Source information: A member of the RNA family "Bacterial large subunit ribosomal RNA" from Syntrophobacter fumaroxidans, 594 nucleotides of a longer RNA. The source organism's lineage runs through Bacteria, Pseudomonadati, Syntrophobacteraceae, Syntrophobacter and Syntrophobacter fumaroxidans.
[Rfam]
RNA sequence: UAGGAAGGGCAGACGGUGGAUGCCUUGGCGCUGAGAGGCGAAGAAGGACGCGGUCAGCUGCGAAAAGCUUCGGGGAGCCGCUAAACAGGCUUUGAUCCGGAGGUGUCCGAAUGGGGAAACCCGGUCCCGGUAAUACGGGAUCACCCGGCACUCGAUUGUGGGCUCAAAAAGGGAGGACUUUGAGCCCAGAGUCGAGUGUCGGGGGCGAACCCGGGGAACUGAAACAUCUCAGUACCCGGAGGAGAAGAAAUCAAGCAGAGAUUCCGCAAGUAGCGGCGAGCGAACGCGGAGGAGCCCAAACCCGGGUCAAAUUGAUCCGGGGGUUGUAGGGCCCCGAUAUGGGAUGUGAGAGGGUAGCGGAAGGAUCUGGAAAGGUCUUCCACAGAGGGUGAGAGGCCCGUACGCGAAACUCCGACACACCCUAGGGGAACCCUGAGUACCGCGGGGCACGAGGAAUCCCGCGGGAAGCCGGGAGGACCAUCUUCCAAGGCUAAAUACUCCUCAGCGACCGAUAGUGAACGAGUACCGUGAGGGAAAGGUGAAAAGCACCCCGGGAGGGGAGUGAAAGAGUACCUGAAACCGUUUGCCUACAAG
Numbered sequence: 001u002a003g004g005a006a007g008g009g010c011a012g013a014c015g016g017u018g019g020a021u022g023c024c025u026u027g028g029c030g031c032u033g034a035g036a037g038g039c040g041a042a043g044a045a046g047g048a049c050g051c052g053g054u055c056a057g058c059u060g061c062g063a064a065a066a067g068c069u070u071c072g073g074g075g076a077g078c079c080g081c082u083a084a085a086c087a088g089g090c091u092u093u094g095a096u097c098c099g100g101a102g103g104u105g106u107c108c109g110a111a112u113g114g115g116g117a118a119a120c121c122c123g124g125u126c127c128c129g130g131u132a133a134u135a136c137g138g139g140a141u142c143a144c145c146c147g148g149c150a151c152u153c154g155a156u157u158g159u160g161g162g163c164u165c166a167a168a169a170a171g172g173g174a175g176g177a178c179u180u181u182g183a184g185c186c187c188a189g190a191g192u193c194g195a196g197u198g199u200c201g202g203g204g205g206c207g208a209a210c211c212c213g214g215g216g217a218a219c220u221g222a223a224a225c226a227u228c229u230c231a232g233u234a235c236c237c238g239g240a241g242g243a244g245a246a247g248a249a250a251u252c253a254a255g256c257a258g259a260g261a262u263u264c265c266g267c268a269a270g271u272a273g274c275g276g277c278g279a280g281c282g283a284a285c286g287c288g289g290a291g292g293a294g295c296c297c298a299a300a301c302c303c304g305g306g307u308c309a310a311a312u313u314g315a316u317c318c319g320g321g322g323g324u325u326g327u328a329g330g331g332c333c334c335c336g337a338u339a340u341g342g343g344a345u346g347u348g349a350g351a352g353g354g355u356a357g358c359g360g361a362a363g364g365a366u367c368u369g370g371a372a373a374g375g376u377c378u379u380c381c382a383c384a385g386a387g388g389g390u391g392a393g394a395g396g397c398c399c400g401u402a403c404g405c406g407a408a409a410c411u412c413c414g415a416c417a418c419a420c421c422c423u424a425g426g427g428g429a430a431c432c433c434u435g436a437g438u439a440c441c442g443c444g445g446g447g448c449a450c451g452a453g454g455a456a457u458c459c460c461g462c463g464g465g466a467a468g469c470c471g472g473g474a475g476g477a478c479c480a481u482c483u484u485c486c487a488a489g490g491c492u493a494a495a496u497a498c499u500c501c502u503c504a505g506c507g508a509c510c511g512a513u514a515g516u517g518a519a520c521g522a523g524u525a526c527c528g529u530g531a532g533g534g535a536a537a538g539g540u541g542a543a544a545a546g547c548a549c550c551c552c553g554g555g556a557g558g559g560g561a562g563u564g565a566a567a568g569a570g571u572a573c574c575u576g577a578a579a580c581c582g583u584u585u586g587c588c589u590a591c592a593a594g
Stems, first nucleotide, its partner, number of pairs: 007589010022574001023539002027510002029507007036499002038206002046108003049062003068102007077090003113122003123142007144203014210241001211239005221228002251259002262495001263290005273281002293492004301321007328434003332428004343421001345419004352412004357405003363378005381385001387399003440464008471486005526533002549560004